Shown here is a 46-nucleotide sequence from Lacipirellula limnantheis, a member of the family "Acido-Lenti-1 RNA". Taxonomically the source falls in Lacipirellula (Bacteria, Pseudomonadati, Planctomycetota, Pirellulales).
RNA sequence: CCGUGAGCUCACGCCCACGGCUAAGUGAUUUCGCCGCUUUGCGGCU
Numbered sequence: 001c002c003g004u005g006a007g008c009u010c011a012c013g014c015c016c017a018c019g020g021c022u023a024a025g026u027g028a029u030u031u032c033g034c035c036g037c038u039u040u041g042c043g044g045c046u
Stems, first nucleotide, its partner, number of pairs: 001020005007014002033045005
It scores 42 bits against the family's covariance model.